[Rfam]
RNA sequence: UACUAAGGGCGUGCGGUGGAUGCCUAGGUGCCAAGAGGCGAAGAAGGACGUGGGUGGCUGCGAAAAGCUCCGGGGAGUUGCCAACCGAACGUUGAGCCGGAGAUGUCCGAAUGGGGAAACCCAGCGUGGUGAAAGCCGCGUUACCUCGGCCUGAAUACAUAGGGCCGAAGGAGCGAACCAGGGGAAGUGAAACAUCUCAGUACCCUGAGGAAAAGAAAACAAUGAGUGAUUCCCGGAGUAGUGGCGAGCGAAACGGGAACAGCCUAAACCAGUGUCACGCAAGUGGCACUGGGGUUGCGGGUCCGCGGUAGGACCUUUGCCGGUUAGCGGAAGCACCUGGAAAGGUGCACCAGAGAGAGUGACAGUCUCGUACGCGAAAACUGGUGGAGGCCGAGCGGGUUACCCAAGUAGGGCGGGACACGUGCAAUCCUGCCUGAAUCAGCCGGGACCAUCCGGUAAGGCUAAAUACUCCUUGGCGACCGAUAGUGGACAAGUACCGCGAGGGAAAGGUGAAAAGAACCCCAGCGAGGGGAAUGAAAAGAACCUGAAACCGCAUGUCUACAAG
Numbered sequence: 001u002a003c004u005a006a007g008g009g010c011g012u013g014c015g016g017u018g019g020a021u022g023c024c025u026a027g028g029u030g031c032c033a034a035g036a037g038g039c040g041a042a043g044a045a046g047g048a049c050g051u052g053g054g055u056g057g058c059u060g061c062g063a064a065a066a067g068c069u070c071c072g073g074g075g076a077g078u079u080g081c082c083a084a085c086c087g088a089a090c091g092u093u094g095a096g097c098c099g100g101a102g103a104u105g106u107c108c109g110a111a112u113g114g115g116g117a118a119a120c121c122c123a124g125c126g127u128g129g130u131g132a133a134a135g136c137c138g139c140g141u142u143a144c145c146u147c148g149g150c151c152u153g154a155a156u157a158c159a160u161a162g163g164g165c166c167g168a169a170g171g172a173g174c175g176a177a178c179c180a181g182g183g184g185a186a187g188u189g190a191a192a193c194a195u196c197u198c199a200g201u202a203c204c205c206u207g208a209g210g211a212a213a214a215g216a217a218a219a220c221a222a223u224g225a226g227u228g229a230u231u232c233c234c235g236g237a238g239u240a241g242u243g244g245c246g247a248g249c250g251a252a253a254c255g256g257g258a259a260c261a262g263c264c265u266a267a268a269c270c271a272g273u274g275u276c277a278c279g280c281a282a283g284u285g286g287c288a289c290u291g292g293g294g295u296u297g298c299g300g301g302u303c304c305g306c307g308g309u310a311g312g313a314c315c316u317u318u319g320c321c322g323g324u325u326a327g328c329g330g331a332a333g334c335a336c337c338u339g340g341a342a343a344g345g346u347g348c349a350c351c352a353g354a355g356a357g358a359g360u361g362a363c364a365g366u367c368u369c370g371u372a373c374g375c376g377a378a379a380a381c382u383g384g385u386g387g388a389g390g391c392c393g394a395g396c397g398g399g400u401u402a403c404c405c406a407a408g409u410a411g412g413g414c415g416g417g418a419c420a421c422g423u424g425c426a427a428u429c430c431u432g433c434c435u436g437a438a439u440c441a442g443c444c445g446g447g448a449c450c451a452u453c454c455g456g457u458a459a460g461g462c463u464a465a466a467u468a469c470u471c472c473u474u475g476g477c478g479a480c481c482g483a484u485a486g487u488g489g490a491c492a493a494g495u496a497c498c499g500c501g502a503g504g505g506a507a508a509g510g511u512g513a514a515a516a517g518a519a520c521c522c523c524a525g526c527g528a529g530g531g532g533a534a535u536g537a538a539a540a541g542a543a544c545c546u547g548a549a550a551c552c553g554c555a556u557g558u559c560u561a562c563a564a565g
Stems, first nucleotide, its partner, number of pairs: 007560010022545001023510002027481002029478007036470002038174002046108003049062003068102006077090003113122003123142007144171002146168007178209001179207005189196002219227002230466001231258005241249002261463004269292007299405003303398004314390012327375003333348005351355001357369003411435008442457005497504002520532004
RNA: Bacterial large subunit ribosomal RNA, nucleotides 9 to 573